[Rfam]
Rfam assigns this 107-nucleotide RNA from Microbulbifer agarilyticus to the family "t44 RNA".
For this family Rfam cites "Transcriptome analysis of Escherichia coli using high-density oligonucleotide probe arrays" (Tjaden et al., Nucleic Acids Res, 2002).
The match comes from Rfam's covariance-model search (61 bits).
RNA sequence: GCUGCUCUUAACAAACGCCGCACAUAUACCGGCACAUUCACCUGGGUGUCUUUGAGUGACCUAACGUGCUCUCAAGGAUUGGUAAAUGGGGUAUAUGGAGGAUAAAA
Dot-bracket structure: ......................((((((((....((((.(((.....(((((((((..............))))))))).))).)))).))))))))..........